A member of the RNA family "Lysine riboswitch aptamer" from Absicoccus porci, 168 nucleotides long. The family's consensus secondary structure is taken from published work. Riboswitches are metabolite binding domains within certain messenger RNAs that serve as precision sensors for their corresponding targets. Allosteric rearrangement of mRNA structure is mediated by ligand binding, and this results in modulation of gene expression. This family includes riboswitches that sense lysine in a number of genes involved in lysine metabolism, including lysC. The match comes from Rfam's covariance-model search (75 bits).

RNA sequence: GAUGAAGAUAGAGGCAGCGAUGCGUCAGAGUAUGAAAUGGAGUUGGCAGACGGUGAAGUUUCAGAAAGGUAAUCAUCGCCGAAAGAAAUAAAAUGGCAAUUUUAUUUCUUGGGGUUCUAAGAAAUACUUAGUUCACUCCUUCGUUGCAGAAGAGGCGUUAUCUGAAAG
Numbered sequence: 001g002a003u004g005a006a007g008a009u010a011g012a013g014g015c016a017g018c019g020a021u022g023c024g025u026c027a028g029a030g031u032a033u034g035a036a037a038u039g040g041a042g043u044u045g046g047c048a049g050a051c052g053g054u055g056a057a058g059u060u061u062c063a064g065a066a067a068g069g070u071a072a073u074c075a076u077c078g079c080c081g082a083a084a085g086a087a088a089u090a091a092a093a094u095g096g097c098a099a100u101u102u103u104a105u106u107u108c109u110u111g112g113g114g115u116u117c118u119a120a121g122a123a124a125u126a127c128u129u130a131g132u133u134c135a136c137u138c139c140u141u142c143g144u145u146g147c148a149g150a151a152g153a154g155g156c157g158u159u160a161u162c163u164g165a166a167a168g
Base pairs, nucleotide, nucleotide: 006163007162008161009160010159011158017079018078019077020076021075022074025071033063034062035061036060037059038058083110084109085108086107087106088105089104090103091102092101093100094099111137112136114134117131118130119129120128121127139152140151141150142149